[Rfam]
Nucleotides: 121
Base pairs, nucleotide, nucleotide: 008114009113010112011111012110013109020066021065022064023063068101069100070099071097072096075095076094077093081089082088
Number, partner (000 for none) and nucleotide at each position: 001000g002000c003000u004000g005000g006000c007000a008114g009113c010112g011111c012110g013109g014000g015000a016000g017000a018000g019000a020066c021065c022064u023063g024000c025000g026000u027000g028000a029000u030000u031000c032000g033000c034000a035000a036000u037000u038000g039000c040000u041000u042000a043000u044000a045000g046000c047000c048000a049000u050000u051000g052000c053000g054000g055000a056000u057000u058000a059000c060000g061000a062000a063023u064022a065021g066020g067000c068101g069100c070099c071097g072096a073000a074000g075095g076094a077093g078000c079000a080000a081089c082088c083000g084000c085000c086000c087000c088082g089081g090000a091000a092000a093077c094076u095075c096072u097071c098000a099070g100069g101068c102000a103000a104000a105000a106000g107000g108000a109013c110012c111011g112010c113009g114008c115000c116000u117000g118000c119000u120000g121000a